[Rfam]
RNA sequence: AUGUUAUCUUCAGCCAUAUAGACAGCCUGGGAGUCAGCCCUUACUGGAGCCCACAAGGUAAUCCAGGGGGUAAUGGUAAACCCGGUAAUGUCGGUGGUAAUGAUGCUCUA
Numbered sequence: 001a002u003g004u005u006a007u008c009u010u011c012a013g014c015c016a017u018a019u020a021g022a023c024a025g026c027c028u029g030g031g032a033g034u035c036a037g038c039c040c041u042u043a044c045u046g047g048a049g050c051c052c053a054c055a056a057g058g059u060a061a062u063c064c065a066g067g068g069g070g071u072a073a074u075g076g077u078a079a080a081c082c083c084g085g086u087a088a089u090g091u092c093g094g095u096g097g098u099a100a101u102g103a104u105g106c107u108c109u110a
Stems, first nucleotide, its partner, number of pairs: 008105001010103003014097003021092004026085002034076003038070003044066005050058002
Rfam assigns this 110-nucleotide RNA sequence from Rabbit coronavirus HKU14 to the family "Coronavirus packaging signal". About the family: This family represents a predicted coronavirus packaging signal. Rfam's curators put it in the seed alignment.